[Rfam]
RNA sequence: GUUCAAAAGAGGAAAGGCUUGCGGUGGAUACCUAGGUACCCAGAGACGAGGAAGGGUGUAGCAAGCGACAAAAUGCUUCGGGGAGUUGAAAAUAAGCAUAGAUCCGAAGAUUCCCAAAUAGGUCAACCUUUUGAACUGCCUGCUGAAUCCAUGAGCAGGCAAGAGACAACCUGGCGAACUGAAACAUCUUAGUAGCCAGAGGAAAAGAAAGCAAAAGCGAUUCCCGUAGUAGCGGCGAGCGAAAUGGGAGCAGCCUAAACCGUGAAAACGGGGUUGUGGGAGAGCAAUACAAGCGUUGUGCUGCUAGGCGAAGCGGUUGAGUGCCGCACCCUAGAUGGCUAAAGUCCAGUAGCCGAAAGCAUCACUAGCUUACGCUCUGACCCGAGUAGCAUGGGGCACGUGGAAUCCCAUGUGAAUCAGCAAGGACCACCUUGCAAGGCUAAAUACUCCUGGGUGACCGAUAGCGAAGUAGUACCAUGAGGGAAAGGUGAAAAGAACCCCCAGUGGGUAGUGAAAUAGAACGUGAAACCGUGCUGAGCUCCCAAG
Numbered sequence: 001g002u003u004c005a006a007a008a009g010a011g012g013a014a015a016g017g018c019u020u021g022c023g024g025u026g027g028a029u030a031c032c033u034a035g036g037u038a039c040c041c042a043g044a045g046a047c048g049a050g051g052a053a054g055g056g057u058g059u060a061g062c063a064a065g066c067g068a069c070a071a072a073a074u075g076c077u078u079c080g081g082g083g084a085g086u087u088g089a090a091a092a093u094a095a096g097c098a099u100a101g102a103u104c105c106g107a108a109g110a111u112u113c114c115c116a117a118a119u120a121g122g123u124c125a126a127c128c129u130u131u132u133g134a135a136c137u138g139c140c141u142g143c144u145g146a147a148u149c150c151a152u153g154a155g156c157a158g159g160c161a162a163g164a165g166a167c168a169a170c171c172u173g174g175c176g177a178a179c180u181g182a183a184a185c186a187u188c189u190u191a192g193u194a195g196c197c198a199g200a201g202g203a204a205a206a207g208a209a210a211g212c213a214a215a216a217g218c219g220a221u222u223c224c225c226g227u228a229g230u231a232g233c234g235g236c237g238a239g240c241g242a243a244a245u246g247g248g249a250g251c252a253g254c255c256u257a258a259a260c261c262g263u264g265a266a267a268a269c270g271g272g273g274u275u276g277u278g279g280g281a282g283a284g285c286a287a288u289a290c291a292a293g294c295g296u297u298g299u300g301c302u303g304c305u306a307g308g309c310g311a312a313g314c315g316g317u318u319g320a321g322u323g324c325c326g327c328a329c330c331c332u333a334g335a336u337g338g339c340u341a342a343a344g345u346c347c348a349g350u351a352g353c354c355g356a357a358a359g360c361a362u363c364a365c366u367a368g369c370u371u372a373c374g375c376u377c378u379g380a381c382c383c384g385a386g387u388a389g390c391a392u393g394g395g396g397c398a399c400g401u402g403g404a405a406u407c408c409c410a411u412g413u414g415a416a417u418c419a420g421c422a423a424g425g426a427c428c429a430c431c432u433u434g435c436a437a438g439g440c441u442a443a444a445u446a447c448u449c450c451u452g453g454g455u456g457a458c459c460g461a462u463a464g465c466g467a468a469g470u471a472g473u474a475c476c477a478u479g480a481g482g483g484a485a486a487g488g489u490g491a492a493a494a495g496a497a498c499c500c501c502c503a504g505u506g507g508g509u510a511g512u513g514a515a516a517u518a519g520a521a522c523g524u525g526a527a528a529c530c531g532u533g534c535u536g537a538g539c540u541c542c543c544a545a546g
Base pairs, nucleotide, nucleotide: 016540017539018538019537020536021532022531023530024529031488032487035459036458037456038455039454040453041452042451043450044448045447047165054115055114056113057070058069059068076109077108078107079106080105081104082103085097086096087095120129121128122127136163137162138160139159140158141157142156143155144154170201171199172198173197174196175195181188182187211218212217221444222249223248224247225246226245232240233239252441253440254439255438260271261270262269263268278383279382280381282377283376284375285374296367298365299364300363302361303360304359305358307354308353309352313327314326315325316324317323330334336348337347338346389413390412391411392410393409394408395407396406420435421434422433423432424431475482476481499508500507501506
Dot-bracket structure: ...............(((((((((......((..(((((((((((.(......((((((........))).....(((((((..(((.......))).....)))))))...)))....(((....)))......(((((((((.........))))))).)).)....((((((.....((....))......))))).).........((....))..((((((.....((.....))....)))))..((((....((((....))))......(((.((((..........(.(((.((((.(((...(((((.....)))))..(...).(((.......)))...)))...)))).))).)......))))...))).....((((((((.........))))))))......(((((......)))))..))))..)..)).))))))).))...............((....))....))..........(((....)))....................))))...)))))......